[Rfam]
Nucleotides: 060
Stems, first nucleotide, its partner, number of pairs: 001058012018045001023040006
Number, partner (000 for none) and nucleotide at each position: 001058a002057a003056a004055g005054g006053a007052g008051c009050a010049a011048u012047a013000c014000u015000a016000a017000c018045c019000c020000u021000c022000u023040u024039u025038c026037u027036u028035g029000g030000u031000a032000g033000a034000a035028c036027a037026a038025g039024a040023a041000g042000u043000u044000g045018g046000u047012u048011a049010u050009u051008g052007c053006u054005c055004c056003u057002u058001u059000u060000u